[Rfam]
The family of this 104-nucleotide RNA sequence from Glycine soja is "MIR390 microRNA precursor family". Its family is annotated with miRNA-mediated post-transcriptional gene silencing and RISC complex in the Gene Ontology. Taxonomically the source falls in Glycine subgen. Soja (Eukaryota, Viridiplantae, Euphyllophyta, Spermatophyta). Pairs were carried over by alignment from the consensus structure, which was predicted with WAR.
RNA sequence: UGGAAGAAUCUGUAAAGCUCAGGAGGGAUAGCGCCAUGGAUGAUCUUCUCUUCACUUUUGAUCUUCUCUUGCGCUAUCCAUCCUGAGUUUCAUGGCUUCUAUCC
Numbered sequence: 001u002g003g004a005a006g007a008a009u010c011u012g013u014a015a016a017g018c019u020c021a022g023g024a025g026g027g028a029u030a031g032c033g034c035c036a037u038g039g040a041u042g043a044u045c046u047u048c049u050c051u052u053c054a055c056u057u058u059u060g061a062u063c064u065u066c067u068c069u070u071g072c073g074c075u076a077u078c079c080a081u082c083c084u085g086a087g088u089u090u091c092a093u094g095g096c097u098u099c100u101a102u103c104c
Stems, first nucleotide, its partner, number of pairs: 010095001016089009026079009
Dot-bracket structure: .........(.....(((((((((.(((((((((....................................))))))))).))))))))).....).........